[Rfam]
RNA: MIR6020 microRNA precursor family
RNA sequence: CUAUGCAGCUGACUUGUAAAUGUUCUUCGAGUAUCUUCAUUCUUCCUUAAUCCUAAUGAAGUUUUAGAGGCGAAGAUACUCGAAAAACAUUUACUUGUUAUUUGUAUAG
Numbered sequence: 001c002u003a004u005g006c007a008g009c010u011g012a013c014u015u016g017u018a019a020a021u022g023u024u025c026u027u028c029g030a031g032u033a034u035c036u037u038c039a040u041u042c043u044u045c046c047u048u049a050a051u052c053c054u055a056a057u058g059a060a061g062u063u064u065u066a067g068a069g070g071c072g073a074a075g076a077u078a079c080u081c082g083a084a085a086a087a088c089a090u091u092u093a094c095u096u097g098u099u100a101u102u103u104g105u106a107u108a109g
Stems, first nucleotide, its partner, number of pairs: 001109008010100004016094009026084013040069004046061003050057002
Dot-bracket structure: ((((((((.((((..(((((((((.(((((((((((((.((((..(((.((....)).)))....))))..))))))))))))).)))))))))..)))).))))))))